[Rfam]
RNA sequence: GGGCCCUGAUAAUGCUGUGUAUUCUGAGCCCUGACUAUGCUGUGUAAUCUGAGCCCUGACUAUGUUGUGUAAUCUGAGCCCUGACUAUGCUGUGUAAUCUGAGCCCUGACUAUACUUUGUAAUCUGAGCCC
Numbered sequence: 001g002g003g004c005c006c007u008g009a010u011a012a013u014g015c016u017g018u019g020u021a022u023u024c025u026g027a028g029c030c031c032u033g034a035c036u037a038u039g040c041u042g043u044g045u046a047a048u049c050u051g052a053g054c055c056c057u058g059a060c061u062a063u064g065u066u067g068u069g070u071a072a073u074c075u076g077a078g079c080c081c082u083g084a085c086u087a088u089g090c091u092g093u094g095u096a097a098u099c100u101g102a103g104c105c106c107u108g109a110c111u112a113u114a115c116u117u118u119g120u121a122a123u124c125u126g127a128g129c130c131c
Stems, first nucleotide, its partner, number of pairs: 001131004038094003042090005
RNA: Small nucleolar RNA SNORD10
Organism: Aquarana catesbeiana